[Rfam]
RNA sequence: AAUAGGAGAAUGACAAAUAAGAUUUUUUUUCCUAAUUUUUAACAUUUUUAGUUGGAUUUAAAUUUGUUCAGGGGGAAAAACUUGAAAAUCAUGAGGAAAAAUCUUAUUUGUCAUCCUUCUAUU
Dot-bracket structure: ((((((((.((((((((((((((((((.(((.(.(((((.((..((((...........................))))..)).))))).).))).)))))))))))))))))).))))))))
A member of the RNA family "MIR7504 microRNA precursor family" from Gossypium aridum, 123 nucleotides long. The family's consensus secondary structure was predicted with RNAalifold. Rfam 15.1 lists 7,343 matches to the family in 61 species. Lineage of the source: Eukaryota > Euphyllophyta > rosids > Malvales > Gossypium. It scores 85 bits against the family's covariance model.